Annotation: A member of the RNA family "Rhodo-rpoB RNA" from Loktanella sp. S4079, 92 nucleotides long.

RNA sequence: AUGUCGGGAGGGUGCCGGUGGGACGGCAGCCACGAAUAGACAUCAAACCCCCGGUCAAAUGGGUGGUGCGUCGCGGCCCGGGCGAUGUGGCA
Numbered sequence: 001a002u003g004u005c006g007g008g009a010g011g012g013u014g015c016c017g018g019u020g021g022g023a024c025g026g027c028a029g030c031c032a033c034g035a036a037u038a039g040a041c042a043u044c045a046a047a048c049c050c051c052c053g054g055u056c057a058a059a060u061g062g063g064u065g066g067u068g069c070g071u072c073g074c075g076g077c078c079c080g081g082g083c084g085a086u087g088u089g090g091c092a
Stems, first nucleotide, its partner, number of pairs: 001043005010031002013028005066091002069087005
NCBI's taxonomy places the organism under Bacteria, Pseudomonadati, Rhodobacterales, Roseobacteraceae, Loktanella.